Notes
Shown here is a 35-nucleotide sequence from Phascolarctos cinereus, a member of the family "Iron response element I". The family's RNA type in Rfam is cis-regulatory element. Taxonomically the source falls in Phascolarctos (Eukaryota, Euteleostomi, Tetrapoda, Theria).
RNA sequence: CUGGUUCUUGCUUCAACAAUGUUUGGACUGAACAG
Numbered sequence: 001c002u003g004g005u006u007c008u009u010g011c012u013u014c015a016a017c018a019a020u021g022u023u024u025g026g027a028c029u030g031a032a033c034a035g
Base pairs, nucleotide, nucleotide: 001035002034003033005032006031007030010028012027013026014025015024016023017021